[Rfam]
RNA sequence: UUUCCGUUGUUGAAACUUGGAUUUACAAGAAAUUUACGGAACACCUGUUUUGCCUGAACGUUCACCUGCGCAGCAAUGGCAUAAGACGUAUCGUAUUUUCAGGCAGUUAGCGGGCUGCGGGUUGCAGCCUGACCGGUAAAUGGAGUUAACUUUUAAUUAAUUUUCUAAGGUUAUUCCCACGAUAAUUGCGCUGUAUUUCCGUAUGAAAAUACAGGCUACCGACACUUUGCGCCUCUCAGCCGGCGACAACCGUGAGGUUGACGACUACGCGAUCAGUCACGAGGCCAUCGGUUCAUUCCCGGUUAGCGUUACUUUUGCCCACAGCACUAAUACUAA
Numbered sequence: 001u002u003u004c005c006g007u008u009g010u011u012g013a014a015a016c017u018u019g020g021a022u023u024u025a026c027a028a029g030a031a032a033u034u035u036a037c038g039g040a041a042c043a044c045c046u047g048u049u050u051u052g053c054c055u056g057a058a059c060g061u062u063c064a065c066c067u068g069c070g071c072a073g074c075a076a077u078g079g080c081a082u083a084a085g086a087c088g089u090a091u092c093g094u095a096u097u098u099u100c101a102g103g104c105a106g107u108u109a110g111c112g113g114g115c116u117g118c119g120g121g122u123u124g125c126a127g128c129c130u131g132a133c134c135g136g137u138a139a140a141u142g143g144a145g146u147u148a149a150c151u152u153u154u155a156a157u158u159a160a161u162u163u164u165c166u167a168a169g170g171u172u173a174u175u176c177c178c179a180c181g182a183u184a185a186u187u188g189c190g191c192u193g194u195a196u197u198u199c200c201g202u203a204u205g206a207a208a209a210u211a212c213a214g215g216c217u218a219c220c221g222a223c224a225c226u227u228u229g230c231g232c233c234u235c236u237c238a239g240c241c242g243g244c245g246a247c248a249a250c251c252g253u254g255a256g257g258u259u260g261a262c263g264a265c266u267a268c269g270c271g272a273u274c275a276g277u278c279a280c281g282a283g284g285c286c287a288u289c290g291g292u293u294c295a296u297u298c299c300c301g302g303u304u305a306g307c308g309u310u311a312c313u314u315u316u317g318c319c320c321a322c323a324g325c326a327c328u329a330a331u332a333c334u335a336a
Base pairs, nucleotide, nucleotide: 003040004039005038006037007036016029017028018027019026050106051105052104053103054102055101056100057099061095063093068089069088070087073080074079112327114325115324116323117322119320120319121318122317130305131304132303133302134301135300136299142177143176144175145174146173151168152167155164188216189215191214192213193212194211196208197207198206199205218292219291220290221289222288231285232284233283234282235281244263245262247260248259249258250257251256
About this RNA
The family of this 336-nucleotide sequence from Citrobacter sp. JGM124 is "RNase E 5' UTR element". A reference for the family is Diwa et al. (2000), "An evolutionarily conserved RNA stem-loop functions as a sensor that directs feedback regulation of RNase E gene expression", Genes Dev. Gene Ontology term of the family: regulation of gene expression. The family's consensus secondary structure is taken from published work. Rfam describes the family as follows. This family represents a conserved element found in the 5' UTR of RNase E mRNA. RNase E is a key regulatory enzyme in the pathway of mRNA degradation in E. coli that is able to auto-regulate the degradation of its own mRNA in response to changes in RNase E activity. NCBI's taxonomy places the organism under Bacteria, Pseudomonadati, Pseudomonadota, Gammaproteobacteria, Citrobacter.